[Rfam]
RNA sequence: AAGAGCCUCGAGCCAAUAAAGACUAAUAAGGUUGACUCAAGAAAAAA
Numbered sequence: 001a002a003g004a005g006c007c008u009c010g011a012g013c014c015a016a017u018a019a020a021g022a023c024u025a026a027u028a029a030g031g032u033u034g035a036c037u038c039a040a041g042a043a044a045a046a047a
Stems, first nucleotide, its partner, number of pairs: 007041002010038003014034004
RNA: Plastid-rpl16 group II-D1 intron